[Rfam]
RNA sequence: CCUCCAUUUCUUGGCGGGUGUCGGGCGUGCAGUCCCGAUCCCCGUAAUGUACGGAGGCAGAGGGAAAGGGCUCCGGCCCUCUCGGUGACAUGUCUUCGGUGCCGGCGGCUUUCAGUCCGCCGGUUCUAUCCUCAAGCGCCGAGACACUA
Number, nucleotide and partner (000 for none) at each position: 001c057002c056003u055004c054005c053006a000007u000008u000009u000010c000011u000012u000013g000014g000015c044016g043017g042018g041019u000020g039021u000022c037023g036024g035025g034026c000027g000028u000029g000030c000031a000032g000033u000034c025035c024036c023037g022038a000039u020040c000041c018042c017043c016044g015045u000046a000047a000048u000049g000050u000051a000052c000053g005054g004055a003056g002057g001058c000059a000060g000061a000062g000063g000064g000065a000066a000067a000068g000069g000070g000071c000072u000073c000074c000075g000076g000077c000078c000079c000080u000081c000082u000083c141084g140085g139086u138087g137088a000089c000090a000091u000092g000093u000094c000095u000096u000097c000098g000099g000100u000101g000102c123103c122104g121105g120106c119107g118108g117109c000110u000111u000112u000113c000114a000115g000116u000117c108118c107119g106120c105121c104122g103123g102124u000125u000126c000127u000128a000129u000130c000131c000132u000133c000134a000135a000136g000137c087138g086139c085140c084141g083142a000143g000144a000145c000146a000147c000148u000149a000

The family of this 149-nucleotide sequence from Galemys pyrenaicus is "Small nucleolar RNA SNORA57". The family's consensus secondary structure was predicted with PFOLD. It scores 171 bits against the family's covariance model. It is annotated as an H/ACA-box small nucleolar RNA. The literature on the family includes a 2003 paper in Nucleic Acids Res by Vitali et al., "Identification of 13 novel human modification guide RNAs". The source organism's lineage runs through Eukaryota, Chordata, Teleostomi, Tetrapoda and Galemys. Rfam describes the family as follows. U99 belongs to the H/ACA class of snoRNAs which are thought to guide the sites of modification of uridines to pseudouridines, the target for this family is unknown.